[Rfam]
RNA sequence: UGUCCAUGCCCAUCUUGGGCGUUUCCUCCCUAGACUUUGACCGUGUCGUGAAAACGAUACGGUCUCUUUUUAAAUGCCU
Numbered sequence: 001u002g003u004c005c006a007u008g009c010c011c012a013u014c015u016u017g018g019g020c021g022u023u024u025c026c027u028c029c030c031u032a033g034a035c036u037u038u039g040a041c042c043g044u045g046u047c048g049u050g051a052a053a054a055c056g057a058u059a060c061g062g063u064c065u066c067u068u069u070u071u072a073a074a075u076g077c078c079u
Base pairs, nucleotide, nucleotide: 008020009019010018011017039064040063041062042061043060044059045058046057047056
Rfam assigns this 79-nucleotide sequence from Chelativorans sp. BNC1 to the family "Makes More Granules Regulator RNA (mmgR)".
About the family: SuhB later renamed mmgR (makes more granules regulator) was a putative non-coding RNA found multiple times in the Agrobacterium tumefaciens genome and related alpha-proteobacteria.
Lineage of the source: Bacteria > Pseudomonadati > Alphaproteobacteria > Phyllobacteriaceae > Chelativorans.